[Rfam]
RNA sequence: UCAUGAACUUCGUAAUGUGCACAUUAUUUAGACGGGUUCUAAAAGGGCAUAUAGGAA
Numbered sequence: 001u002c003a004u005g006a007a008c009u010u011c012g013u014a015a016u017g018u019g020c021a022c023a024u025u026a027u028u029u030a031g032a033c034g035g036g037u038u039c040u041a042a043a044a045g046g047g048c049a050u051a052u053a054g055g056a057a
Stems, first nucleotide, its partner, number of pairs: 019037002022034001024032002